[Rfam]
RNA sequence: ACUGCCGUAAUGGCCAUAGCAGAAGCACUUAUGUCACGGCCCUGUCAGAUUCUAACAAAUCUGCAAAUUCUGCU
Numbered sequence: 001a002c003u004g005c006c007g008u009a010a011u012g013g014c015c016a017u018a019g020c021a022g023a024a025g026c027a028c029u030u031a032u033g034u035c036a037c038g039g040c041c042c043u044g045u046c047a048g049a050u051u052c053u054a055a056c057a058a059a060u061c062u063g064c065a066a067a068u069u070c071u072g073c074u
Base pairs, nucleotide, nucleotide: 012041013040014039015038018074019073020072021071022070023069024068025037046063047062048061049060050059051058
RNA: Mammalian CPEB3 ribozyme